[Rfam]
RNA: c-di-AMP riboswitch aptamer (ydaO/yuaA leader)
Organism: Methylomusa anaerophila
RNA sequence: GUAAGGUACAUGCCUAAUUUCCGGCCAUACUUCGGAAAACGGAGGAACCAACAGUGGGGUGAAUCCGCAUUGCGGUAGGGGCGUCCCUUUGCUCCGAACCCGUCAGCUAACUUCGUAGGCAUUUAGAAAGGGGAAAU
Numbered sequence: 001g002u003a004a005g006g007u008a009c010a011u012g013c014c015u016a017a018u019u020u021c022c023g024g025c026c027a028u029a030c031u032u033c034g035g036a037a038a039a040c041g042g043a044g045g046a047a048c049c050a051a052c053a054g055u056g057g058g059g060u061g062a063a064u065c066c067g068c069a070u071u072g073c074g075g076u077a078g079g080g081g082c083g084u085c086c087c088u089u090u091g092c093u094c095c096g097a098a099c100c101c102g103u104c105a106g107c108u109a110a111c112u113u114c115g116u117a118g119g120c121a122u123u124u125a126g127a128a129a130g131g132g133g134a135a136a137u
Base pairs, nucleotide, nucleotide: 011121012120013119014118018038019037020036021035022034023033024032039116040115041114042113043112044111049056050055057101058100059099065075066074067073068072078095079094080093081092